[Rfam]
RNA sequence: GGGACCGAAAUUAUUCGGUCCCAAAUAUAGAGACCGAAUAAUGUCGGUCCCUAUUCGGUCCCAAAAUAGGGACCGACAUUAUUCGGUCUCUAUUUUUGGGACCGAAUAUUUUCGGUCCC
Numbered sequence: 001g002g003g004a005c006c007g008a009a010a011u012u013a014u015u016c017g018g019u020c021c022c023a024a025a026u027a028u029a030g031a032g033a034c035c036g037a038a039u040a041a042u043g044u045c046g047g048u049c050c051c052u053a054u055u056c057g058g059u060c061c062c063a064a065a066a067u068a069g070g071g072a073c074c075g076a077c078a079u080u081a082u083u084c085g086g087u088c089u090c091u092a093u094u095u096u097u098g099g100g101a102c103c104g105a106a107u108a109u110u111u112u113c114g115g116u117c118c119c
Stems, first nucleotide, its partner, number of pairs: 001119009013107012029091009043077013
Rfam assigns this 119-nucleotide RNA sequence from Colocasia esculenta to the family "MIR6450 microRNA precursor family". The organism belongs to Colocasia, within Eukaryota. Rfam 15.1 lists 53 matches to the family in 7 species.